[Rfam]
RNA sequence: ACGGUUCAUUUACUAGGCGUUAAGCUUUUUCACCUAUUACUUUGGUCGUCCAUCUUUGGACGCCGAGUGGCUCCUGUCCACUCUGCUUUGACGCCUCCCUGUUAUCAACUUCAAAGCCGCCGGCAACGGCGGCUCUUUUUUU
Numbered sequence: 001a002c003g004g005u006u007c008a009u010u011u012a013c014u015a016g017g018c019g020u021u022a023a024g025c026u027u028u029u030u031c032a033c034c035u036a037u038u039a040c041u042u043u044g045g046u047c048g049u050c051c052a053u054c055u056u057u058g059g060a061c062g063c064c065g066a067g068u069g070g071c072u073c074c075u076g077u078c079c080a081c082u083c084u085g086c087u088u089u090g091a092c093g094c095c096u097c098c099c100u101g102u103u104a105u106c107a108a109c110u111u112c113a114a115a116g117c118c119g120c121c122g123g124c125a126a127c128g129g130c131g132g133c134u135c136u137u138u139u140u141u142u
Base pairs, nucleotide, nucleotide: 002044003043004042006015016038017037021036022035024033048061049060050059051058065083066082067081068080069079070078090103091102092101093100113136115134116133117132118131119130120129121128122127
Alphaproteobacterial sRNA BjrC1505: a 142-nucleotide sequence from Rhodopseudomonas palustris. For this family Rfam cites "Small RNAs of the Bradyrhizobium/Rhodopseudomonas lineage and their analysis" (Madhugiri et al., RNA Biol, 2012). Lineage of the source: Bacteria > Pseudomonadati > Hyphomicrobiales > Nitrobacteraceae > Rhodopseudomonas palustris.